This 445-nucleotide sequence from Menura novaehollandiae belongs to the Rfam family "Vertebrate telomerase RNA".
Clan: Telomerase clan.
A reference for the family is Chen et al. (2000), "Secondary structure of vertebrate telomerase RNA", Cell.
NCBI's taxonomy places the organism under Eukaryota, Euteleostomi, Dipnotetrapodomorpha, Telluraves, Menura.
A search with the family's covariance model found it, with a score of 154 bits.
Rfam 15.1 lists 523 matches to the family in 477 species.
Rfam describes the family as follows. Telomerase is a ribonucleoprotein reverse transcriptase that synthesises telomeric DNA. Telomerase RNAs differ greatly in sequence and structure between vertebrates, ciliates and yeasts, but they share a 5' pseudoknot structure close to the template sequence.
Nucleotides: 445
Base pairs, nucleotide, nucleotide: 005177006176007175008174009173010172011171012170013169014168015167019164020163021162022161023160052106053105055103056102064098065097066096067095068094069093070092071091072090081156082155083154084153085152086151087149088148089147183358184357185356186355187354188353189352197323198322199321200320201319202318203317221311222310223309224308225307226306227305232302233301234300244277245276246275247274248273250272251271252270253269255265256264257263279291280290281289282288370437371436372435373434376433377432378431379430380429381428396425397424398423399422400421403418404417405416406415
Number, partner (000 for none) and nucleotide at each position: 001000c002000c003000g004000u005177g006176c007175c008174g009173g010172g011171g012170u013169g014168g015167g016000c017000a018000g019164g020163c021162c022161c023160u024000g025000c026000g027000g028000c029000c030000a031000a032000c033000u034000a035000a036000c037000c038000c039000u040000a041000a042000u043000g044000g045000c046000g047000g048000c049000u050000g051000c052106g053105c054000c055103c056102c057000u058000c059000a060000c061000g062000c063000c064098c065097g066096c067095c068094c069093g070092c071091u072090g073000u074000u075000u076000u077000a078000c079000u080000a081156g082155c083154u084153g085152a086151c087149u088148u089147u090072c091071a092070g093069c094068g095067g096066g097065c098064g099000a100000a101000g102056g103055g104000a105053g106052c107000g108000g109000c110000c111000c112000g113000g114000g115000g116000a117000a118000c119000g120000g121000g122000g123000g124000g125000a126000g127000a128000a129000g130000a131000g132000a133000g134000a135000u136000c137000c138000c139000g140000c141000g142000u143000c144000a145000a146000a147089a148088a149087a150000c151086g152085u153084c154083a155082g156081c157000g158000a159000g160023g161022g162021g163020g164019c165000c166000c167015c168014u169013c170012a171011c172010c173009c174008c175007g176006g177005c178000c179000c180000a181000c182000a183358c184357u185356g186355g187354g188353g189352u190000c191000c192000c193000u194000g195000u196000c197323c198322c199321u200320c201319u202318c203317c204000c205000g206000c207000a208000g209000c210000a211000g212000u213000g214000g215000a216000u217000g218000c219000u220000c221311c222310c223309g224308c225307c226306g227305c228000c229000g230000c231000a232302c233301c234300g235000u236000g237000c238000g239000g240000a241000g242000g243000c244277c245276g246275c247274g248273g249000u250272c251271g252270g253269c254000c255265g256264g257263c258000u259000c260000a261000g262000c263257g264256c265255c266000a267000c268000u269253g270252c271251c272250g273248c274247c275246g276245c277244g278000a279291a280290g281289a282288g283000c284000u285000c286000g287000u288282c289281u290280c291279u292000g293000u294000c295000a296000g297000c298000c299000u300234c301233g302232g303000c304000g305227g306226c307225g308224g309223c310222g311221g312000g313000g314000a315000g316000c317203g318202g319201a320200g321199a322198g323197g324000c325000g326000g327000c328000c329000c330000g331000c332000c333000c334000a335000c336000a337000c338000u339000g340000g341000g342000c343000a344000g345000c346000c347000g348000g349000g350000g351000g352189a353188c354187c355186c356185c357184a358183g359000c360000a361000g362000a363000g364000c365000a366000a367000a368000a369000c370437g371436g372435g373434c374000g375000c376433g377432g378431c379430g380429c381428c382000g383000c384000c385000g386000g387000g388000c389000u390000g391000a392000g393000c394000a395000g396425c397424c398423g399422c400421g401000g402000c403418u404417c405416c406415u407000u408000c409000a410000g411000a412000u413000a414000u415406g416405g417404g418403g419000u420000g421400c422399g423398c424397g425396g426000c427000c428381g429380g430379c431378g432377c433376c434373g435372c436371c437370c438000c439000g440000a441000c442000a443000c444000c445000c